Source information:
The record is a 159-nucleotide RNA sequence from Enhydra lutris, which matches "U4 spliceosomal RNA" in Rfam. The organism belongs to Enhydra lutris, within Eukaryota. A reference for the family is Zwieb (1997), "The uRNA database", Nucleic Acids Res. The family's consensus secondary structure is taken from published work. The family is grouped with related families in Rfam's "U4 clan".
RNA sequence: AGCUUUGCGCAGUGGCAGUAUCGUAGCCAAUGAGGUUUAUCCGAGGCGCGAUUAUUGCUAAUUGAAAGAGAAAGAAAUUCUUCAUUUUACUGUAUAUAUUUUAUGGUAUCCCAAAGAGUAACAUGAAACAGAAAAUUUUGACCCACUUAAUCACAGAGA
Numbered sequence: 001a002g003c004u005u006u007g008c009g010c011a012g013u014g015g016c017a018g019u020a021u022c023g024u025a026g027c028c029a030a031u032g033a034g035g036u037u038u039a040u041c042c043g044a045g046g047c048g049c050g051a052u053u054a055u056u057g058c059u060a061a062u063u064g065a066a067a068g069a070g071a072a073a074g075a076a077a078u079u080c081u082u083c084a085u086u087u088u089a090c091u092g093u094a095u096a097u098a099u100u101u102u103a104u105g106g107u108a109u110c111c112c113a114a115a116g117a118g119u120a121a122c123a124u125g126a127a128a129c130a131g132a133a134a135a136u137u138u139u140g141a142c143c144c145a146c147u148u149a150a151u152c153a154c155a156g157a158g159a
Stems, first nucleotide, its partner, number of pairs: 020052005026047003034042002079132003082126004087121005